[Rfam]
RNA sequence: AAGAUUGAAGCAACCAGGAAAGUUCAGGUGCAGUAAUGGGGCGGUUCACAAGUGACAUGGUGGUCAGGCUGCUGAAUGGCAGACAGAGUGAAUGCAGAAUAAACAAGACCUGACAAAACAGUUGAAGAAACCAGGAACAAUAAGUCAAUGAAGCAAAGUGUUCUGCACUAUUUGAAGAAAGCAGGCAGGAUGAACCAAACAUCACUUCAAACUUAAACCAAGAAGUUGUUAAGGGGGAAGAAUCAACAAGGGAGAGGACACAGCACUUCAAUCUU
Numbered sequence: 001a002a003g004a005u006u007g008a009a010g011c012a013a014c015c016a017g018g019a020a021a022g023u024u025c026a027g028g029u030g031c032a033g034u035a036a037u038g039g040g041g042c043g044g045u046u047c048a049c050a051a052g053u054g055a056c057a058u059g060g061u062g063g064u065c066a067g068g069c070u071g072c073u074g075a076a077u078g079g080c081a082g083a084c085a086g087a088g089u090g091a092a093u094g095c096a097g098a099a100u101a102a103a104c105a106a107g108a109c110c111u112g113a114c115a116a117a118a119c120a121g122u123u124g125a126a127g128a129a130a131c132c133a134g135g136a137a138c139a140a141u142a143a144g145u146c147a148a149u150g151a152a153g154c155a156a157a158g159u160g161u162u163c164u165g166c167a168c169u170a171u172u173u174g175a176a177g178a179a180a181g182c183a184g185g186c187a188g189g190a191u192g193a194a195c196c197a198a199a200c201a202u203c204a205c206u207u208c209a210a211a212c213u214u215a216a217a218c219c220a221a222g223a224a225g226u227u228g229u230u231a232a233g234g235g236g237g238a239a240g241a242a243u244c245a246a247c248a249a250g251g252g253a254g255a256g257g258a259c260a261c262a263g264c265a266c267u268u269c270a271a272u273c274u275u
Base pairs, nucleotide, nucleotide: 001275002274003273004272005271006270007269008268009267010266024113025112026111027110028109029108044093045092046091047090048089049088053066054065055064056063069082070081071080072079121247122246123245124244125243131234132233136230137229138228139227140226141225142214143213144212145211150208151207152206153205159187160186161185163184164183165182166181189203190202191201192200
This 275-nucleotide RNA sequence belongs to the Rfam family "RAGATH-8 RNA". Rfam's curators put it in the seed alignment. For this family Rfam cites "New classes of self-cleaving ribozymes revealed by comparative genomics analysis" (Weinberg et al., Nat Chem Biol, 2015). The family's consensus secondary structure is taken from published work.